[Rfam]
RNA: MIR5387 microRNA precursor family
RNA sequence: UCGUAAUACGAACUGGUGCUAAAGGGUCCUGUCCAACGGCUACUGACAGGUGCUGUCGGGGCGGAGACCCUUUAGCACCGGUUCGUGUUACCAA
Numbered sequence: 001u002c003g004u005a006a007u008a009c010g011a012a013c014u015g016g017u018g019c020u021a022a023a024g025g026g027u028c029c030u031g032u033c034c035a036a037c038g039g040c041u042a043c044u045g046a047c048a049g050g051u052g053c054u055g056u057c058g059g060g061g062c063g064g065a066g067a068c069c070c071u072u073u074a075g076c077a078c079c080g081g082u083u084c085g086u087g088u089u090a091c092c093a094a
Stems, first nucleotide, its partner, number of pairs: 003091025030064001032060003036056002043049002